[Rfam]
Source information
Rfam assigns this 94-nucleotide RNA from Noviherbaspirillum pedocola to the family "Burkholderia RNA 7 (anti-hemB)". A reference for the family is Weinberg et al. (2007), "Identification of 22 candidate structured RNAs in bacteria using the CMfinder comparative genomics pipeline", Nucleic Acids Res. Its family is annotated with bacterial biofilm matrix and protein binding in the Gene Ontology. This RNA motif was identified by computational search in b-proteobacteria Burkholderia.
RNA sequence: CCUCCCGCUUCUCCUCCCUGAGCGGGGCCUAUCGUUCCUAACGAUGAGGCGUUACUACCCUGGAGAUACUCCCCUUUCUCCAGGGUUUUUUUAU
Numbered sequence: 001c002c003u004c005c006c007g008c009u010u011c012u013c014c015u016c017c018c019u020g021a022g023c024g025g026g027g028c029c030u031a032u033c034g035u036u037c038c039u040a041a042c043g044a045u046g047a048g049g050c051g052u053u054a055c056u057a058c059c060c061u062g063g064a065g066a067u068a069c070u071c072c073c074c075u076u077u078c079u080c081c082a083g084g085g086u087u088u089u090u091u092u093a094u
Stems, first nucleotide, its partner, number of pairs: 004026006027050004032044003057086010